[Rfam]
RNA sequence: GAGGGGUUGGCGCGGGCAAGCGCCUCGCCAACCUGGUCAGGUCCGGAAGGAAGCAGCCACAACGAGCCCCGCUUGGGUCGAUGUCCAAUCCCUCACCC
Numbered sequence: 001g002a003g004g005g006g007u008u009g010g011c012g013c014g015g016g017c018a019a020g021c022g023c024c025u026c027g028c029c030a031a032c033c034u035g036g037u038c039a040g041g042u043c044c045g046g047a048a049g050g051a052a053g054c055a056g057c058c059a060c061a062a063c064g065a066g067c068c069c070c071g072c073u074u075g076g077g078u079c080g081a082u083g084u085c086c087a088a089u090c091c092c093u094c095a096c097c098c
Stems, first nucleotide, its partner, number of pairs: 004092003008088001009085004013080002017075006024066004034059004042051003

A member of the RNA family "Bacterial small signal recognition particle RNA" from Thalassobacter sp. 16PALIMAR09, 98 nucleotides long. NCBI's taxonomy places the organism under Bacteria, Pseudomonadati, Alphaproteobacteria, Rhodobacterales, Thalassobacter. A reference for the family is Rosenblad et al. (2003), "SRPDB: Signal Recognition Particle Database", Nucleic Acids Res. It is annotated as a non-coding RNA gene.